[Rfam]
RNA sequence: GAAACUCAAUAUACCGAUGUUUUUUAUUUUCUUUUUUAUUCAUUCUGAUCUCGGGAGCGGAUUUUCUGUGUAAAAACGAAAAUGAAAAUUCAAUAGCCUCCCACUUGGGGGGCUUUUUUGUU
Numbered sequence: 001g002a003a004a005c006u007c008a009a010u011a012u013a014c015c016g017a018u019g020u021u022u023u024u025u026a027u028u029u030u031c032u033u034u035u036u037u038a039u040u041c042a043u044u045c046u047g048a049u050c051u052c053g054g055g056a057g058c059g060g061a062u063u064u065u066c067u068g069u070g071u072a073a074a075a076a077c078g079a080a081a082a083u084g085a086a087a088a089u090u091c092a093a094u095a096g097c098c099u100c101c102c103a104c105u106u107g108g109g110g111g112g113c114u115u116u117u118u119u120g121u122u
Stems, first nucleotide, its partner, number of pairs: 021088011033076002036073004043056003059067003093116001095114008
Rfam assigns this 122-nucleotide RNA from Shewanella intestini to the family "Phenylalanine leader peptide".
The literature on the family includes a 1978 paper in Proc Natl Acad Sci U S A by Zurawski et al., "Nucleotide sequence of the leader region of the phenylalanine operon of Escherichia coli".
Pairs were carried over by alignment from the consensus structure, which was predicted with CMfinder.